[Rfam]
Rfam assigns this 73-nucleotide RNA sequence from Corynebacterium sp. KPL1989 to the family "tRNA". The match comes from Rfam's covariance-model search (73 bits). The family's RNA type in Rfam is transfer RNA.

RNA sequence: GGCCAGAUAGCUCAGUCGGUAGAGCAUCCGCCUGAAAAGUGGAAGGUCAGCGGUUCGAUCCCGCUUCUGGCCA
Numbered sequence: 001g002g003c004c005a006g007a008u009a010g011c012u013c014a015g016u017c018g019g020u021a022g023a024g025c026a027u028c029c030g031c032c033u034g035a036a037a038a039g040u041g042g043a044a045g046g047u048c049a050g051c052g053g054u055u056c057g058a059u060c061c062c063g064c065u066u067c068u069g070g071c072c073a
Stems, first nucleotide, its partner, number of pairs: 001072007010025004027043005049065005